RNA sequence: GGUACGGACCGCGCCCCUCUGGCGAGUGCAGCAGCAUUCGUGAUGUCGGACGUAUCG
Numbered sequence: 001g002g003u004a005c006g007g008a009c010c011g012c013g014c015c016c017c018u019c020u021g022g023c024g025a026g027u028g029c030a031g032c033a034g035c036a037u038u039c040g041u042g043a044u045g046u047c048g049g050a051c052g053u054a055u056c057g
Base pairs, nucleotide, nucleotide: 006051009049010048011047022041023040024039025038026037027036028035029034
Source information: terC RNA: a 57-nucleotide RNA from Qipengyuania gaetbuli. The family has 129 seed sequences and 1,112 matches in Rfam 15.1. Lineage of the source: Bacteria > Pseudomonadati > Alphaproteobacteria > Erythrobacteraceae > Qipengyuania.